A member of the RNA family "L20-Deltaproteobacteria ribosomal protein leader", 57 nucleotides long. Pairs were carried over by alignment from the consensus structure, which is taken from published work. By type it is a cis-regulatory leader.
RNA sequence: GCCCCAGAACCGUGAGGAAACGGCCCCUUAUGGAUCGGGUAAUUUAACCUAAAGGAG
Numbered sequence: 001g002c003c004c005c006a007g008a009a010c011c012g013u014g015a016g017g018a019a020a021c022g023g024c025c026c027c028u029u030a031u032g033g034a035u036c037g038g039g040u041a042a043u044u045u046a047a048c049c050u051a052a053a054g055g056a057g
Base pairs, nucleotide, nucleotide: 003039004038005037007036008035010033011032012031013030014029015028016027017026